[Rfam]
RNA: SAM (S-adenosyl methionine) riboswitch aptamer
RNA sequence: GGUCCUGAGCGCCAGCGCGAAGUCCCGGCUCGCUGGCCGGCAACCCCCCGCCGACACGGGGUGCCCCGGGUGACGACCUGGCGGGCGCGACGCGCCCGCAAGUCCGCAGG
Number, nucleotide and partner (000 for none) at each position: 001g078002g077003u076004c075005c000006u000007g000008a000009g038010c000011g037012c036013c035014a034015g033016c032017g000018c000019g000020a000021a030022g029023u000024c000025c000026c000027g000028g000029c022030u021031c000032g016033c015034u014035g013036g012037c011038c009039g065040g064041c063042a000043a000044c061045c060046c059047c000048c000049c000050g000051c000052c000053g000054a000055c000056a000057c000058g000059g046060g045061g044062u000063g041064c040065c039066c000067c000068g000069g000070g000071u000072g000073a000074c000075g004076a003077c002078c001079u000080g000081g099082c098083g097084g096085g095086c094087g093088c092089g000090a000091c000092g088093c087094g086095c085096c084097c083098g082099c081100a000101a000102g000103u000104c000105c000106g000107c000108a000109g000110g000